Background:
Shown here is a 313-nucleotide sequence from Thermosphaera aggregans, a member of the family "Archaeal RNase P". It scores 166 bits against the family's covariance model. Rfam's curators write: Ribonuclease P (RNase P) is a ubiquitous endoribonuclease, found in archaea, bacteria and eukarya as well as chloroplasts and mitochondria. Its family is annotated with tRNA processing, multimeric ribonuclease P complex and ribonuclease P activity in the Gene Ontology. The family is grouped with related families in Rfam's "RNaseP clan". On this family, see Frank and Pace, Annu Rev Biochem 1998: "Ribonuclease P: unity and diversity in a tRNA processing ribozyme".
RNA sequence: GGGGCCGGGCGGCCCGUCGACGCCUCCGUUUGGAGGUGAGGAAACUCCGCGCACCCCGUGGCAGUGCGGCCCCGUAAGGGGCACGGGUAGUCCCCGUGGCAACGGCACAGAAACGGUACGGCCGUGGCUGGAUGGCCGUGAUGCGGGCGGGCCCCCGGUGACGGGGGUUUAAACCGUUGAGGACGGCUACGGACGCGUUGAAACGGCCGCCCCGCACGGUGCAAGGCCUGGUUCCGGUGUGAGGGCCACGCGACCGGUGUAGGCCGCUUAGACGAAUGCGGGCUUAACAGAACGCGGGUUACGGCCCGGCCCU
Numbered sequence: 001g002g003g004g005c006c007g008g009g010c011g012g013c014c015c016g017u018c019g020a021c022g023c024c025u026c027c028g029u030u031u032g033g034a035g036g037u038g039a040g041g042a043a044a045c046u047c048c049g050c051g052c053a054c055c056c057c058g059u060g061g062c063a064g065u066g067c068g069g070c071c072c073c074g075u076a077a078g079g080g081g082c083a084c085g086g087g088u089a090g091u092c093c094c095c096g097u098g099g100c101a102a103c104g105g106c107a108c109a110g111a112a113a114c115g116g117u118a119c120g121g122c123c124g125u126g127g128c129u130g131g132a133u134g135g136c137c138g139u140g141a142u143g144c145g146g147g148c149g150g151g152c153c154c155c156c157g158g159u160g161a162c163g164g165g166g167g168u169u170u171a172a173a174c175c176g177u178u179g180a181g182g183a184c185g186g187c188u189a190c191g192g193a194c195g196c197g198u199u200g201a202a203a204c205g206g207c208c209g210c211c212c213c214g215c216a217c218g219g220u221g222c223a224a225g226g227c228c229u230g231g232u233u234c235c236g237g238u239g240u241g242a243g244g245g246c247c248a249c250g251c252g253a254c255c256g257g258u259g260u261a262g263g264c265c266g267c268u269u270a271g272a273c274g275a276a277u278g279c280g281g282g283c284u285u286a287a288c289a290g291a292a293c294g295c296g297g298g299u300u301a302c303g304g305c306c307c308g309g310c311c312c313u
Base pairs, nucleotide, nucleotide: 001313002312003311005309006308007307008306009305010303011302012283013282014281015280016279017278021038022037023036024035025034043300044299045298047297048296049295050294051293052221053220054219055218057250058249059248060247061246064217065216066215067214068213069082070081071080072079073078083097084096085095086094087093098212099211103209104208105207106206119197120196122192123191124190125189126188127187128186129185143177144176145175146174225265226264227263228262235256236255237254238253